[Rfam]
Nucleotides: 036
Base pairs, nucleotide, nucleotide: 001027002026003025004024005023010021011020012019
Number, partner (000 for none) and nucleotide at each position: 001027c002026u003025c004024u005023g006000g007000g008000c009000u010021g011020c012019c013000a014000a015000c016000a017000a018000a019012g020011g021010c022000u023005c024004a025003g026002g027001g028000c029000g030000g031000a032000a033000a034000g035000a036000g